[Rfam]
RNA sequence: GCCAAAUGAUGUCAAAAUAGACUUCGUGAGCUCUCUGUGGCAAAGAUGACACAAAUCUAUCACCCAAGACUGAUGGCU
Numbered sequence: 001g002c003c004a005a006a007u008g009a010u011g012u013c014a015a016a017a018u019a020g021a022c023u024u025c026g027u028g029a030g031c032u033c034u035c036u037g038u039g040g041c042a043a044a045g046a047u048g049a050c051a052c053a054a055a056u057c058u059a060u061c062a063c064c065c066a067a068g069a070c071u072g073a074u075g076g077c078u
Stems, first nucleotide, its partner, number of pairs: 001077004030041003033037001
RNA: Small nucleolar RNA SNORD83
Organism: Phrynocephalus forsythii